[Rfam]
RNA: U11 spliceosomal RNA
RNA sequence: AAAAAAGGCUUCUGUCAUGAGUGGCACAUGUAGGGCAACUUGAUUGCUCUGCUUGCGGAAUCGAGAUCAAGGGAUUUCAGAAGCAUAAUUUUUUGGUAUCUGGGCAGCUGGUGAUUGUUGGUCCUAGCAUCCUC
Numbered sequence: 001a002a003a004a005a006a007g008g009c010u011u012c013u014g015u016c017a018u019g020a021g022u023g024g025c026a027c028a029u030g031u032a033g034g035g036c037a038a039c040u041u042g043a044u045u046g047c048u049c050u051g052c053u054u055g056c057g058g059a060a061u062c063g064a065g066a067u068c069a070a071g072g073g074a075u076u077u078c079a080g081a082a083g084c085a086u087a088a089u090u091u092u093u094u095g096g097u098a099u100c101u102g103g104g105c106a107g108c109u110g111g112u113g114a115u116u117g118u119u120g121g122u123c124c125u126a127g128c129a130u131c132c133u134c
Base pairs, nucleotide, nucleotide: 008084009083010082011081012080013026014025015024016023017022027055028054030052031051032050033049034048035047036046037045038044057078058077059076060075061074062073102132103131104130107128108127109126110125111124113123114122115121116120